Rfam assigns this 358-nucleotide RNA sequence from Pelagibacterium lentulum to the family "Alphaproteobacteria transfer-messenger RNA". The family's consensus secondary structure is taken from published work. The family's RNA type in Rfam is non-coding RNA gene. A reference for the family is Laslett et al. (2002), "BRUCE: a program for the detection of transfer-messenger RNA genes in nucleotide sequences", Nucleic Acids Res.

RNA sequence: CCCCUUCCAAUCCCAAUCGCCAACCCUUAUAUUGGUCGUGCUGGCAACAGCUAUGGCGAUAAAUUGCCAUCGUAAUAAACCCAUCGGACCCGGGGGCAGUACCCGGCGCCUCCACCAUUACCCUUUGAUUGAAAGGGCUUUUAUGGGGGCGAAACAGGAUCGACGAGGGCGUAAAGGGUGUGUUUUCGCUCGGCAUGGUACCACCGUUAUCGGACUAAAACUUAUAGUUGCAAAUGACAACAAUAAGGCUCCGGUCGCUGUCGCUGCGUAAGCAGUGUUAGCACUGGGAAUUUAAGCCCUUCGCUCCUAGCCGGGUGAAGGCGGGGUCCGCAGGCACCUGGCAACAGAAGCCUGCAUU
Numbered sequence: 001c002c003c004c005u006u007c008c009a010a011u012c013c014c015a016a017u018c019g020c021c022a023a024c025c026c027u028u029a030u031a032u033u034g035g036u037c038g039u040g041c042u043g044g045c046a047a048c049a050g051c052u053a054u055g056g057c058g059a060u061a062a063a064u065u066g067c068c069a070u071c072g073u074a075a076u077a078a079a080c081c082c083a084u085c086g087g088a089c090c091c092g093g094g095g096g097c098a099g100u101a102c103c104c105g106g107c108g109c110c111u112c113c114a115c116c117a118u119u120a121c122c123c124u125u126u127g128a129u130u131g132a133a134a135g136g137g138c139u140u141u142u143a144u145g146g147g148g149g150c151g152a153a154a155c156a157g158g159a160u161c162g163a164c165g166a167g168g169g170c171g172u173a174a175a176g177g178g179u180g181u182g183u184u185u186u187c188g189c190u191c192g193g194c195a196u197g198g199u200a201c202c203a204c205c206g207u208u209a210u211c212g213g214a215c216u217a218a219a220a221c222u223u224a225u226a227g228u229u230g231c232a233a234a235u236g237a238c239a240a241c242a243a244u245a246a247g248g249c250u251c252c253g254g255u256c257g258c259u260g261u262c263g264c265u266g267c268g269u270a271a272g273c274a275g276u277g278u279u280a281g282c283a284c285u286g287g288g289a290a291u292u293u294a295a296g297c298c299c300u301u302c303g304c305u306c307c308u309a310g311c312c313g314g315g316u317g318a319a320g321g322c323g324g325g326g327u328c329c330g331c332a333g334g335c336a337c338c339u340g341g342c343a344a345c346a347g348a349a350g351c352c353u354g355c356a357u358u
Stems, first nucleotide, its partner, number of pairs: 040051004055190005066183002068180004080169003084166003090106005107151007191206003196217003201213002324339004330355006